[Rfam]
RNA sequence: AGUGCUCCUGCUCCAACAGUGCUUGGACGGAGCCCU
Numbered sequence: 001a002g003u004g005c006u007c008c009u010g011c012u013c014c015a016a017c018a019g020u021g022c023u024u025g026g027a028c029g030g031a032g033c034c035c036u
Stems, first nucleotide, its partner, number of pairs: 001036002004033005010028001012027005017021001
A member of the RNA family "Iron response element I" from Ailuropoda melanoleuca, 36 nucleotides long.
Pairs were carried over by alignment from the consensus structure, which is taken from published work.
For this family Rfam cites "Repression of Manduca sexta ferritin synthesis by IRP1/IRE interaction" (Zhang et al., Insect Mol Biol, 2001).
The organism belongs to Ailuropoda, within Eukaryota.
The family has 62 seed sequences and 6,829 matches in Rfam 15.1.